This 155-nucleotide RNA from Eutrema salsugineum belongs to the Rfam family "U12 minor spliceosomal RNA".

[Rfam]
RNA sequence: UCGCCUUAAACUAAUGAGUAAGGAAAACAAAGCGAACGGUGAGAAUCGGUCGCAGCGCAAAACAUAAAUUAGCGCAAGAAUCUUUGGAAGGGAUAUAGGCUGGCCGAGUUGUUGACGCUGUACUUUAACAGAACUCUCUCGUGCGGGCCUCCUCC
Dot-bracket structure: ...(((((..........)))))........((((.(((......))).)))).((((.............))))...............(((...(((((.(.((.(..(......((((......))))...)..).))..).)))))..)))

Description:
Gene Ontology terms of the family: pre-mRNA branch point binding, U12 snRNP and mRNA branch site recognition. It is annotated as a spliceosomal small nuclear RNA. It scores 67 bits against the family's covariance model. NCBI's taxonomy places the organism under Eukaryota, Spermatophyta, Magnoliopsida, Mesangiospermae, Eutrema. The pairing is the family consensus, mapped onto this sequence.